A member of the RNA family "SAM riboswitch aptamer (S box leader)" from Clostridium tagluense, 104 nucleotides long. It scores 79 bits against the family's covariance model. Rfam links the family to the GO term regulation of gene expression. NCBI's taxonomy places the organism under Bacteria, Bacillati, Eubacteriales, Clostridiaceae, Clostridium.
[Rfam]
RNA sequence: UUCUUAUCAAGAGAGGUGUAGGGACUGGCCCUUUGAAACCUCGGCAGCGGGUUCUUUUAGAAUACUGUGCCAAUUCCAGCAAAAUGAUUCUUUAAAGAUAAGAC
Dot-bracket structure: .(((((((....(((((...(((.[[[[)))......)))))((((.(((.((......)).)..))))))...(]]]].((.(....).))...)))))))).